Rfam assigns this 150-nucleotide RNA sequence from Pseudohoeflea suaedae to the family "Alphaproteobacterial sRNA ar7". By type it is a small RNA. A reference for the family is del Val et al. (2012), "A survey of sRNA families in alpha-proteobacteria", RNA Biol. The organism belongs to Pseudohoeflea, within Bacteria.
[Rfam]
RNA sequence: CAUCGGCACAGAAAAAGCCGCAAGUCUGGAAAAUAGACGGCCCGUCCCCCGCCGUAUCCAGACUUUCCGGGCCAAGGUCUCCGCCCCCCUUUGACCUUGGUCCGCUGAUACGCCGCCACAGCCCGCCCCCUCCGGCUGUGGCGGCAUUCU
Numbered sequence: 001c002a003u004c005g006g007c008a009c010a011g012a013a014a015a016a017g018c019c020g021c022a023a024g025u026c027u028g029g030a031a032a033a034u035a036g037a038c039g040g041c042c043c044g045u046c047c048c049c050c051g052c053c054g055u056a057u058c059c060a061g062a063c064u065u066u067c068c069g070g071g072c073c074a075a076g077g078u079c080u081c082c083g084c085c086c087c088c089c090u091u092u093g094a095c096c097u098u099g100g101u102c103c104g105c106u107g108a109u110a111c112g113c114c115g116c117c118a119c120a121g122c123c124c125g126c127c128c129c130c131u132c133c134g135g136c137u138g139u140g141g142c143g144g145c146a147u148u149c150u
Base pairs, nucleotide, nucleotide: 025062026061027060028059029058030057039053040052041051069103070102071101072100073099074098075097076096077095078094079093113144114143115142116141117140118139119138120137121136122135123134